Shown here is a 302-nucleotide RNA from Mycobacterium sp. ACS1612, a member of the family "Mycobacterium smegmatis small RNA 1".
The organism belongs to Mycobacterium, within Bacteria.
It scores 308 bits against the family's covariance model.
Pairs were carried over by alignment from the consensus structure, which was predicted with CMfinder.
On this family, see Hnilicova et al., Nucleic Acids Res 2014: "Ms1, a novel sRNA interacting with the RNA polymerase core in mycobacteria".
Its family is annotated with RNA polymerase binding in the Gene Ontology.
RNA sequence: ACGGAAGCCAGGGGCGGCCAAGACCGAGCCGGAAGAGAAGGCUCGAUCUCCCAAACCCGGCCUCCCAGCACGGAUCCCGGCACCCACGCGGAGCACAUACCGCGGAAUAGGUAAAAGUGUUGCGGGCCUGCGUGAUUGCGAAGAGCGAACGGCCACGACGACCCUUUGGGUGGGGUUGGGGUCGUAGCGCAUCGCAACGACGCCGAGGCCACCCACGCAACCCACACAGCACGCUUGGUAACCGGAGUCCGUGCUAGCGGGCGGCGAGCCGAAUCAGUUCGGAGCGUCGCCCGCUUCGCGUU
Numbered sequence: 001a002c003g004g005a006a007g008c009c010a011g012g013g014g015c016g017g018c019c020a021a022g023a024c025c026g027a028g029c030c031g032g033a034a035g036a037g038a039a040g041g042c043u044c045g046a047u048c049u050c051c052c053a054a055a056c057c058c059g060g061c062c063u064c065c066c067a068g069c070a071c072g073g074a075u076c077c078c079g080g081c082a083c084c085c086a087c088g089c090g091g092a093g094c095a096c097a098u099a100c101c102g103c104g105g106a107a108u109a110g111g112u113a114a115a116a117g118u119g120u121u122g123c124g125g126g127c128c129u130g131c132g133u134g135a136u137u138g139c140g141a142a143g144a145g146c147g148a149a150c151g152g153c154c155a156c157g158a159c160g161a162c163c164c165u166u167u168g169g170g171u172g173g174g175g176u177u178g179g180g181g182u183c184g185u186a187g188c189g190c191a192u193c194g195c196a197a198c199g200a201c202g203c204c205g206a207g208g209c210c211a212c213c214c215a216c217g218c219a220a221c222c223c224a225c226a227c228a229g230c231a232c233g234c235u236u237g238g239u240a241a242c243c244g245g246a247g248u249c250c251g252u253g254c255u256a257g258c259g260g261g262c263g264g265c266g267a268g269c270c271g272a273a274u275c276a277g278u279u280c281g282g283a284g285c286g287u288c289g290c291c292c293g294c295u296u297c298g299c300g301u302u
Stems, first nucleotide, its partner, number of pairs: 003065002007061003011057002016052002021049002025045006067255008077245004084238003088234003093230002098113004119221006125210005130203004136197006145190003149185006159178007257294010269282003